[Rfam]
RNA sequence: GACGCUCUGGAAAGUCGGGAGUAAUCCCGCGCCGAAGGUGUAAGCGCCGCCGACAGAGUUCCGGUUGCGCAAGUCUCUCAGGCUUCAGACAGAGGGGCACGG
Numbered sequence: 001g002a003c004g005c006u007c008u009g010g011a012a013a014g015u016c017g018g019g020a021g022u023a024a025u026c027c028c029g030c031g032c033c034g035a036a037g038g039u040g041u042a043a044g045c046g047c048c049g050c051c052g053a054c055a056g057a058g059u060u061c062c063g064g065u066u067g068c069g070c071a072a073g074u075c076u077c078u079c080a081g082g083c084u085u086c087a088g089a090c091a092g093a094g095g096g097g098c099a100c101g102g
Base pairs, nucleotide, nucleotide: 003096005094006093007092008091009090016029017028018027019026031083032082033081034079035078038077040075044070045069046068047067